[Rfam]
RNA: tRNA
RNA sequence: GCGGGAGUGGCGGAAUGGCAGACGCGCUAGCUUCAGGUGCUAGUAUUCGAAAGGGUGUGUGGGUUCAAAUCCCAUCUUCCGCA
Numbered sequence: 001g002c003g004g005g006a007g008u009g010g011c012g013g014a015a016u017g018g019c020a021g022a023c024g025c026g027c028u029a030g031c032u033u034c035a036g037g038u039g040c041u042a043g044u045a046u047u048c049g050a051a052a053g054g055g056u057g058u059g060u061g062g063g064u065u066c067a068a069a070u071c072c073c074a075u076c077u078u079c080c081g082c083a
Stems, first nucleotide, its partner, number of pairs: 001082007010025003027043005059075005